[Rfam]
RNA: mir-9195 microRNA precursor family
Organism: Cnephaeus nilssonii
RNA sequence: AGAGGCCCUCCGCGGCCGGGGUGGAAUGCUUGCCUCAUUGCUGUGGCGAUGAAGCAAGCAUUCCGCCAGGUCGGUCUUGCUGCCCGC
Numbered sequence: 001a002g003a004g005g006c007c008c009u010c011c012g013c014g015g016c017c018g019g020g021g022u023g024g025a026a027u028g029c030u031u032g033c034c035u036c037a038u039u040g041c042u043g044u045g046g047c048g049a050u051g052a053a054g055c056a057a058g059c060a061u062u063c064c065g066c067c068a069g070g071u072c073g074g075u076c077u078u079g080c081u082g083c084c085c086g087c
Stems, first nucleotide, its partner, number of pairs: 004084003013073005020067014037050005